Notes:
The record is a 122-nucleotide RNA sequence, which matches "LOOT RNA" in Rfam. It is one of the family's seed sequences. It is annotated as a small RNA. Pairs were carried over by alignment from the consensus structure, which is taken from published work.
[Rfam]
Nucleotides: 122
Base pairs, nucleotide, nucleotide: 001040002039003038004037009033010032014028048089049088050087051086052085053084054083055082056081057080058079059076061074062073063072064071091110092109093108094107095106096105097104098103111122112121113120114119
Number, partner (000 for none) and nucleotide at each position: 001040g002039g003038c004037c005000u006000a007000a008000c009033c010032u011000g012000a013000g014028u015000a016000g017000a018000g019000c020000g021000a022000a023000a024000g025000c026000u027000c028014g029000a030000a031000a032010g033009g034000c035000a036000u037004g038003g039002c040001u041000g042000u043000a044000a045000a046000g047000a048089c049088g050087a051086a052085c053084a054083a055082a056081g057080c058079a059076c060000a061074u062073a063072a064071c065000c066000c067000c068000g069000u070000c071064g072063u073062u074061a075000g076059g077000a078000u079058u080057g081056c082055u083054u084053u085052g086051u087050u088049c089048g090000c091110c092109a093108u094107a095106g096105c097104u098103g099000g100000a101000a102000a103098c104097g105096g106095c107094u108093a109092u110091g111122g112121g113120a114119c115000u116000u117000c118000g119114g120113u121112c122111c